[Rfam]
RNA sequence: GAUGGCGGACCUACCAGCACCACGGAUGCAGCUGCCCUGCUGCACCCGUGACGUCGGGGCACAGAGGAAGCAGCUAUUUCUACACUCAGUGCUCAGAACAGUGGGCAUUAAGAAUGGUUUGUAGCCAGACAGUA
Numbered sequence: 001g002a003u004g005g006c007g008g009a010c011c012u013a014c015c016a017g018c019a020c021c022a023c024g025g026a027u028g029c030a031g032c033u034g035c036c037c038u039g040c041u042g043c044a045c046c047c048g049u050g051a052c053g054u055c056g057g058g059g060c061a062c063a064g065a066g067g068a069a070g071c072a073g074c075u076a077u078u079u080c081u082a083c084a085c086u087c088a089g090u091g092c093u094c095a096g097a098a099c100a101g102u103g104g105g106c107a108u109u110a111a112g113a114a115u116g117g118u119u120u121g122u123a124g125c126c127a128g129a130c131a132g133u134a
Stems, first nucleotide, its partner, number of pairs: 003061002006056003022049004073125002080117003085112002090107006